This 92-nucleotide RNA sequence from Sulfobacillus harzensis belongs to the Rfam family "Selenocysteine transfer RNA".
Pairs were carried over by alignment from the consensus structure, which is taken from published work.
It scores 72 bits against the family's covariance model.
A reference for the family is Mizutani and Goto (2000), "Eukaryotic selenocysteine tRNA has the 9/4 secondary structure", FEBS Lett.
Lineage of the source: Bacteria > Bacillati > Clostridia > Eubacteriales > Sulfobacillus.
RNA sequence: GGGGGUAGGUGGAGGCUUGGUGCCUUCCUUGGACUUCAAAUCCAAUGGCCGGCUUUAGAAGUCGGCGGUGGGUUCGAUUCCCACAUAUCCCC
Numbered sequence: 001g002g003g004g005g006u007a008g009g010u011g012g013a014g015g016c017u018u019g020g021u022g023c024c025u026u027c028c029u030u031g032g033a034c035u036u037c038a039a040a041u042c043c044a045a046u047g048g049c050c051g052g053c054u055u056u057a058g059a060a061g062u063c064g065g066c067g068g069u070g071g072g073u074u075c076g077a078u079u080c081c082c083a084c085a086u087a088u089c090c091c092c
Stems, first nucleotide, its partner, number of pairs: 001092007009084001011027006029045005048066005069083004